[Rfam]
Record summary:
A member of the RNA family "Lysine riboswitch aptamer" from Paenisporosarcina cavernae, 182 nucleotides long. NCBI's taxonomy places the organism under Bacteria, Bacillati, Bacillota, Caryophanales, Paenisporosarcina.
RNA sequence: UCGAUAGGUAGAGGCCGCAUGGCUUAUGAGUACCAUACGCGAGGAUGACAACUUAGACCGUAUGCAAAAGGAAGCUUUGCCGAAAGUGAAAAUGCGUCAAUCAUUUUCAACUUGGGGUUAUUCCAAAUAGGAAUAACACUGUCAAUUCAUAGGACGCUAUGAAUUGGUGAGCUACAAAUCGU
Numbered sequence: 001u002c003g004a005u006a007g008g009u010a011g012a013g014g015c016c017g018c019a020u021g022g023c024u025u026a027u028g029a030g031u032a033c034c035a036u037a038c039g040c041g042a043g044g045a046u047g048a049c050a051a052c053u054u055a056g057a058c059c060g061u062a063u064g065c066a067a068a069a070g071g072a073a074g075c076u077u078u079g080c081c082g083a084a085a086g087u088g089a090a091a092a093u094g095c096g097u098c099a100a101u102c103a104u105u106u107u108c109a110a111c112u113u114g115g116g117g118u119u120a121u122u123c124c125a126a127a128u129a130g131g132a133a134u135a136a137c138a139c140u141g142u143c144a145a146u147u148c149a150u151a152g153g154a155c156g157c158u159a160u161g162a163a164u165u166g167g168u169g170a171g172c173u174a175c176a177a178a179u180c181g182u
Stems, first nucleotide, its partner, number of pairs: 008175004017080003021076005034064006084113003087109008114140002117137008142167009